[Rfam]
Small nucleolar RNA snR80: a 144-nucleotide sequence from Cordyceps javanica.
A search with the family's covariance model found it, with a score of 49 bits.
For this family Rfam cites "Genome-wide searching for pseudouridylation guide snoRNAs: analysis of the Saccharomyces cerevisiae genome" (Schattner et al., Nucleic Acids Res, 2004).
The family's consensus secondary structure was predicted with WAR.
The family has 6 seed sequences and 447 matches in Rfam 15.1.
It is annotated as an H/ACA-box small nucleolar RNA.
RNA sequence: UGAUCCUCGGCUACACUCUGAAAUUACCAACUGCACGAUGGUGUAUUUCAAUUUUUGCCCGAGGUAGAUAAGUUCAGUUCCACUACUCACCGCCAUGUAUCUCGUAUGAAAAUGGUCAUGGCGGUCCAUUGAUUGGAUCUACAU
Numbered sequence: 001u002g003a004u005c006c007u008c009g010g011c012u013a014c015a016c017u018c019u020g021a022a023a024u025u026a027c028c029a030a031c032u033g034c035a036c037g038a039u040g041g042u043g044u045a046u047u048u049c050a051a052u053u054u055u056u057g058c059c060c061g062a063g064g065u066a067g068a069u070a071a072g073u074u075c076a077g078u079u080c081c082a083c084u085a086c087u088c089a090c091c092g093c094c095a096u097g098u099a100u101c102u103c104g105u106a107u108g109a110a111a112a113u114g115g116u117c118a119u120g121g122c123g124g125u126c127c128a129u130u131g132a133u134u135g136g137a138u139c140u141a142c143a144u
Base pairs, nucleotide, nucleotide: 007062008061009060019050020049021048022047023046024045025043026042027041028040077139079137080136090124091123092122093121095119096118097117099116100115101114